[Rfam]
RNA sequence: ACGGGCCUGACGCGGACGCCCGUCCAGACGGCUACCGUCCAAGUCCGC
Numbered sequence: 001a002c003g004g005g006c007c008u009g010a011c012g013c014g015g016a017c018g019c020c021c022g023u024c025c026a027g028a029c030g031g032c033u034a035c036c037g038u039c040c041a042a043g044u045c046c047g048c
Base pairs, nucleotide, nucleotide: 001023002022003021004020005019006018012048013047014046015045016044027039028038029037030036031035
RNA: chrB-b RNA